[Rfam]
RNA sequence: AUACAAAAUUAAUCGUGCGGAUUAAUAAUCCAGGACUAUAAAACCGUGUUGUUUAUAUCAAGUCUUUUUUGGUAUAAGCGUCAAGUCCAUCGGAGAGAUCAAUAUUUUGUUCAUCUUAACGCCCUUUUGUGUAGAAGGUUGAGCGGAGCGUAAGCUUUUCUUAACAUUUGAAACGUCUAUGCAAGGGCUGGUAGGACAAACAUGC
Numbered sequence: 001a002u003a004c005a006a007a008a009u010u011a012a013u014c015g016u017g018c019g020g021a022u023u024a025a026u027a028a029u030c031c032a033g034g035a036c037u038a039u040a041a042a043a044c045c046g047u048g049u050u051g052u053u054u055a056u057a058u059c060a061a062g063u064c065u066u067u068u069u070u071g072g073u074a075u076a077a078g079c080g081u082c083a084a085g086u087c088c089a090u091c092g093g094a095g096a097g098a099u100c101a102a103u104a105u106u107u108u109g110u111u112c113a114u115c116u117u118a119a120c121g122c123c124c125u126u127u128u129g130u131g132u133a134g135a136a137g138g139u140u141g142a143g144c145g146g147a148g149c150g151u152a153a154g155c156u157u158u159u160c161u162u163a164a165c166a167u168u169u170g171a172a173a174c175g176u177c178u179a180u181g182c183a184a185g186g187g188c189u190g191g192u193a194g195g196a197c198a199a200a201c202a203u204g205c
Base pairs, nucleotide, nucleotide: 008026009025010024011023012022013021014020029094030093031092033088034087035086036085051079052078053077054076055075056074057073058072059071060070061069062068114196115195116194117193118192121188122187123186124185125184128183129182130181131180132179133178134177135176139171140170141169142168143160145158146157147156148155149154
This 205-nucleotide sequence from Saccharomyces mikatae belongs to the Rfam family "Small nucleolar RNA snR35". The source organism's lineage runs through Eukaryota, Ascomycota, Saccharomycetales, Saccharomyces and Saccharomyces mikatae. Its Rfam clan is "SNORA13 clan". Rfam's curators put it in the seed alignment. Rfam links the family to the GO terms nucleolus and RNA processing.